[Rfam]
RNA sequence: CAGUGCCUGCAUGACUGGCGGAAGUAGGAUUACCUACAGGGAGUGCAGCGAGUAUAUGAGCCGACCGCCUGGGCAGCCUGG
Numbered sequence: 001c002a003g004u005g006c007c008u009g010c011a012u013g014a015c016u017g018g019c020g021g022a023a024g025u026a027g028g029a030u031u032a033c034c035u036a037c038a039g040g041g042a043g044u045g046c047a048g049c050g051a052g053u054a055u056a057u058g059a060g061c062c063g064a065c066c067g068c069c070u071g072g073g074c075a076g077c078c079u080g081g
Base pairs, nucleotide, nucleotide: 004051007048008047009046010045011044012043015040016039017069018068019067020066021065025036026035027034028033060074061073062072

The family of this 81-nucleotide sequence from Blautia wexlerae is "ZMP/ZTP riboswitch aptamer (pfl RNA motif)". It scores 57 bits against the family's covariance model.